MIR1120/MIR1122 microRNA precursor family: an 87-nucleotide RNA sequence from Triticum aestivum. The literature on the family includes a 2007 paper in Genome Biol by Yao et al., "Cloning and characterization of microRNAs from wheat (Triticum aestivum L.)". Rfam 15.1 lists 44,765 matches to the family in 8 species. Pairs were carried over by alignment from the consensus structure, which was predicted with RNAalifold.
RNA sequence: AUAUUCCCUCCGUCCUAUAAUAUAAGAACGUUUUUGACACUACACUAGUGUCAAAAACGUUUUUAUAUUAUGGGACGGAUGAAGUAC
Numbered sequence: 001a002u003a004u005u006c007c008c009u010c011c012g013u014c015c016u017a018u019a020a021u022a023u024a025a026g027a028a029c030g031u032u033u034u035u036g037a038c039a040c041u042a043c044a045c046u047a048g049u050g051u052c053a054a055a056a057a058c059g060u061u062u063u064u065a066u067a068u069u070a071u072g073g074g075a076c077g078g079a080u081g082a083a084g085u086a087c
Stems, first nucleotide, its partner, number of pairs: 003085003007081001009079003013075005019069023